[Rfam]
RNA sequence: AUGCGAUGAUGCAGAAGGUGGCCGUCCUUUGAGACGGGGAAUUUCUGCGGAGUAUGUCCGAUUUUAAAACCGGGCGA
Numbered sequence: 001a002u003g004c005g006a007u008g009a010u011g012c013a014g015a016a017g018g019u020g021g022c023c024g025u026c027c028u029u030u031g032a033g034a035c036g037g038g039g040a041a042u043u044u045c046u047g048c049g050g051a052g053u054a055u056g057u058c059c060g061a062u063u064u065u066a067a068a069a070c071c072g073g074g075c076g077a
Stems, first nucleotide, its partner, number of pairs: 011048004016044003022037005055076006
The family of this 77-nucleotide sequence is "S10-Clostridia ribosomal protein leader". For this family Rfam cites "Discovery of 20 novel ribosomal leader candidates in bacteria and archaea" (Eckert and Weinberg, BMC Microbiol, 2020). The family's RNA type in Rfam is cis-regulatory leader.